[Rfam]
RNA sequence: UAGGGGGAGGUUGGCUGCAUCACUGGUACUGAGGUAAUGGCUGUCCCCAGUACCAGACAUGCCGCCCACCUGCCCAUACA
Numbered sequence: 001u002a003g004g005g006g007g008a009g010g011u012u013g014g015c016u017g018c019a020u021c022a023c024u025g026g027u028a029c030u031g032a033g034g035u036a037a038u039g040g041c042u043g044u045c046c047c048c049a050g051u052a053c054c055a056g057a058c059a060u061g062c063c064g065c066c067c068a069c070c071u072g073c074c075c076a077u078a079c080a
Stems, first nucleotide, its partner, number of pairs: 001078002004075002008071003013066003017062004023056009

Shown here is an 80-nucleotide RNA sequence from Eptesicus fuscus, a member of the family "mir-9186 microRNA precursor family". Rfam's curators put it in the seed alignment.